[Rfam]
RNA sequence: CACUCAUCCAGAGGGGCAGAGGGACACGGCCCGAUGAAGCCCCGGCAACCGCUCGCCGCACCCGUGCGGCGAGGAGGUGCCAAUUCCGUCCCGCGCGGCUCGACGGCCCGAUGCGGGAAAGAUGAGGA
Numbered sequence: 001c002a003c004u005c006a007u008c009c010a011g012a013g014g015g016g017c018a019g020a021g022g023g024a025c026a027c028g029g030c031c032c033g034a035u036g037a038a039g040c041c042c043c044g045g046c047a048a049c050c051g052c053u054c055g056c057c058g059c060a061c062c063c064g065u066g067c068g069g070c071g072a073g074g075a076g077g078u079g080c081c082a083a084u085u086c087c088g089u090c091c092c093g094c095g096c097g098g099c100u101c102g103a104c105g106g107c108c109c110g111a112u113g114c115g116g117g118a119a120a121g122a123u124g125a126g127g128a
Base pairs, nucleotide, nucleotide: 003126004125005124006123007122008121013043014042015041016040017039021032022031023030026089027088028087029086044081045080046079047078049077050076052073053072054071055070056069057068058067085120090117091116092115093114094113095112
Rfam assigns this 128-nucleotide RNA from Modestobacter sp. VKM Ac-2676 to the family "SAM riboswitch aptamer (S box leader)". It scores 75 bits against the family's covariance model. NCBI's taxonomy places the organism under Bacteria, Bacillati, Geodermatophilales, Geodermatophilaceae, Modestobacter.